[Rfam]
The record is a 92-nucleotide RNA sequence from Sphingomonas changnyeongensis, which matches "TPP riboswitch aptamer (THI element)" in Rfam.
The base pairs follow the family's consensus structure, which is taken from published work.
It scores 55 bits against the family's covariance model.
Rfam links the family to the GO term thiamine pyrophosphate binding.
RNA sequence: UCCCCGGGGGAACGCUGCACCGGCGUUUGAGAGGCGGGCACGAGCCCGCGACCCGCUGAACCUGAUCCGGCUGACACCGGCGGAGGGAGGGA
Numbered sequence: 001u002c003c004c005c006g007g008g009g010g011a012a013c014g015c016u017g018c019a020c021c022g023g024c025g026u027u028u029g030a031g032a033g034g035c036g037g038g039c040a041c042g043a044g045c046c047c048g049c050g051a052c053c054c055g056c057u058g059a060a061c062c063u064g065a066u067c068c069g070g071c072u073g074a075c076a077c078c079g080g081c082g083g084a085g086g087g088a089g090g091g092a
Base pairs, nucleotide, nucleotide: 001092002091003090004089005055006054007053008052010049011027012026013025014024015023035048036047037046038045039044061086062085063084067080068079069078070077